[Rfam]
RNA sequence: UUGUCCAGCUGCAGAGCUCUGCAAACCCCCUAUAUCCAGCAUGAUUGGGUGGGCACAACCUGGACGCACAGAAAACCUGUCUUUUUAGGAGGGAGACGCAAAGAUUAGGUGUUUUAAUCCCUUAAAGGCUUGACAGGACACU
Numbered sequence: 001u002u003g004u005c006c007a008g009c010u011g012c013a014g015a016g017c018u019c020u021g022c023a024a025a026c027c028c029c030c031u032a033u034a035u036c037c038a039g040c041a042u043g044a045u046u047g048g049g050u051g052g053g054c055a056c057a058a059c060c061u062g063g064a065c066g067c068a069c070a071g072a073a074a075a076c077c078u079g080u081c082u083u084u085u086u087a088g089g090a091g092g093g094a095g096a097c098g099c100a101a102a103g104a105u106u107a108g109g110u111g112u113u114u115u116a117a118u119c120c121c122u123u124a125a126a127g128g129c130u131u132g133a134c135a136g137g138a139c140a141c142u
Stems, first nucleotide, its partner, number of pairs: 002066007010057002026052002028049003032045002076137006084128003089123006

A member of the RNA family "Small Cajal body specific RNA 11" from Leptobrachium leishanense, 142 nucleotides long. Rfam classes the family as a small Cajal body RNA.